[Rfam]
RNA sequence: GGGGGCGAAGGGGGUCUGGUGGCCUUCCCAGUCUUCAAAACUGUGCGCGAGGCGAUGAUGUCGUCUUGGGUGGGUUCGAUUCCCACACGCUCCC
Dot-bracket structure: (((((((...((((((....))))))(.((((.......)))).)..(((((...........)))))..((((.......))))..)))))))
RNA: Selenocysteine transfer RNA
Organism: Armatimonas rosea